[Rfam]
RNA sequence: CUCUUAUCAAGAGAGGUGGAGGGACUGGCCCUGUGAAACCCAGCAACCGUCAGUAUAACUGAUAGGUGCUAAUUCCAUCAAAGCGACUAGCUUUGAAAGAUAAGAG
Numbered sequence: 001c002u003c004u005u006a007u008c009a010a011g012a013g014a015g016g017u018g019g020a021g022g023g024a025c026u027g028g029c030c031c032u033g034u035g036a037a038a039c040c041c042a043g044c045a046a047c048c049g050u051c052a053g054u055a056u057a058a059c060u061g062a063u064a065g066g067u068g069c070u071a072a073u074u075c076c077a078u079c080a081a082a083g084c085g086a087c088u089a090g091c092u093u094u095g096a097a098a099g100a101u102a103a104g105a106g
Stems, first nucleotide, its partner, number of pairs: 001106008013041001015040003021031003026077003042070004047066002049063004074098001079095006
Dot-bracket structure: ((((((((....(.(((...(((..[[[)))......))))((((.((((((.......)))).))))))...(]]].((((((.....))))))..)))))))))
Overview:
Shown here is a 106-nucleotide sequence from Saliterribacillus persicus, a member of the family "SAM riboswitch aptamer (S box leader)". The base pairs follow the family's consensus structure, which is taken from published work. About the family: The SAM riboswitch is found upstream of a number of genes which code for proteins involved in methionine or cysteine biosynthesis in Gram-positive bacteria.